Shown here is a 109-nucleotide sequence, a member of the family "IMPDH RNA".
RNA sequence: AUCCGUGGAUAUCGGGUGCGCACCGCUCCUCCUCCGGCUGUUCUCCUUCACAGCUAUGACCCAUGCGCCGCACAGGCAGUGUCCCGCUUCGUGUGCAAAAGGGCUCGUC
Numbered sequence: 001a002u003c004c005g006u007g008g009a010u011a012u013c014g015g016g017u018g019c020g021c022a023c024c025g026c027u028c029c030u031c032c033u034c035c036g037g038c039u040g041u042u043c044u045c046c047u048u049c050a051c052a053g054c055u056a057u058g059a060c061c062c063a064u065g066c067g068c069c070g071c072a073c074a075g076g077c078a079g080u081g082u083c084c085c086g087c088u089u090c091g092u093g094u095g096c097a098a099a100a101g102g103g104c105u106c107g108u109c
Base pairs, nucleotide, nucleotide: 007084008083009082010081011080012079015069016068017067018066019065020064023058036055037054038053039052040051041050070094071093072092073091074089075088076087077086